[Rfam]
RNA sequence: AGGUCUGCAGAGAGAGUGGCAGGGUCUGAUCCCCAGCCUCUGUGGCAGCUGUUGAUCAGCUGUUGCCUCUCCCUCUCUCUCCC
Numbered sequence: 001a002g003g004u005c006u007g008c009a010g011a012g013a014g015a016g017u018g019g020c021a022g023g024g025u026c027u028g029a030u031c032c033c034c035a036g037c038c039u040c041u042g043u044g045g046c047a048g049c050u051g052u053u054g055a056u057c058a059g060c061u062g063u064u065g066c067c068u069c070u071c072c073c074u075c076u077c078u079c080u081c082c083c
Stems, first nucleotide, its partner, number of pairs: 010075003014071003018067005024061001026059006034051004
Source information:
This 83-nucleotide RNA sequence from Cnephaeus nilssonii belongs to the Rfam family "mir-574 microRNA precursor family". NCBI's taxonomy places the organism under Eukaryota, Amniota, Eutheria, Laurasiatheria, Cnephaeus. For this family Rfam cites "MicroRNA identity and abundance in porcine skeletal muscles determined by deep sequencing" (Nielsen et al., Anim Genet, 2010). It scores 89 bits against the family's covariance model. The family's consensus secondary structure was predicted with RNAalifold.